[Rfam]
Vault RNA: a 100-nucleotide sequence from Saimiri boliviensis. A search with the family's covariance model found it, with a score of 73 bits. For this family Rfam cites "Evolution of Vault RNAs" (Stadler et al., Mol Biol Evol, 2009). The base pairs follow the family's consensus structure, which is taken from published work.
RNA sequence: GGGCCGGCUUUAGCUCAGCAGUUACUUCAACAAUGCUUUCUAUAGCGGAAAACAAUCACUCUGCGUGGUUCGAGACCCGCGGGCGCUCUCCGGCCUUUAA
Dot-bracket structure: .((((((.....((((.((.(....(((.(.......................................).)))..).)))))).....)))))).....
By type it is a non-coding RNA gene.